traJ-II RNA: a 96-nucleotide sequence from Pseudoduganella ginsengisoli.
RNA sequence: GGGCAGGAUAGGUGAAGUUAGCUAACUUUUCAGGUUGCUAUCUUCACGUUCCUUAUUCGCGCCUGCGGUGCUCAACGGAGAUCCUGUAGCGGACCG
Numbered sequence: 001g002g003g004c005a006g007g008a009u010a011g012g013u014g015a016a017g018u019u020a021g022c023u024a025a026c027u028u029u030u031c032a033g034g035u036u037g038c039u040a041u042c043u044u045c046a047c048g049u050u051c052c053u054u055a056u057u058c059g060c061g062c063c064u065g066c067g068g069u070g071c072u073c074a075a076c077g078g079a080g081a082u083c084c085u086g087u088a089g090c091g092g093a094c095c096g
Stems, first nucleotide, its partner, number of pairs: 003087007012047006019040003024035001026034003049080004059071005
The family's consensus secondary structure is taken from published work.
The family has 47 seed sequences and 174 matches in Rfam 15.1.
The organism belongs to Pseudoduganella, within Bacteria.